Source information
This 98-nucleotide RNA from Butyricicoccus sp. TM10-16AC belongs to the Rfam family "pemK RNA". A search with the family's covariance model found it, with a score of 58 bits. NCBI's taxonomy places the organism under Bacteria, Clostridia, Eubacteriales, Butyricicoccaceae, Butyricicoccus. The family's RNA type in Rfam is cis-regulatory element.
RNA sequence: ACAAUGAUACUCCCUUGCCGUCGUAGUCCGAGCGUUUGAAGCGUCGCAGGCAACGAGCAGGGCCGCGUGAGAACCACGCAGGGGUGAGAUUCCCGUGG
Numbered sequence: 001a002c003a004a005u006g007a008u009a010c011u012c013c014c015u016u017g018c019c020g021u022c023g024u025a026g027u028c029c030g031a032g033c034g035u036u037u038g039a040a041g042c043g044u045c046g047c048a049g050g051c052a053a054c055g056a057g058c059a060g061g062g063c064c065g066c067g068u069g070a071g072a073a074c075c076a077c078g079c080a081g082g083g084g085u086g087a088g089a090u091u092c093c094c095g096u097g098g
Stems, first nucleotide, its partner, number of pairs: 012095001013062006063081001065079001067077003082094003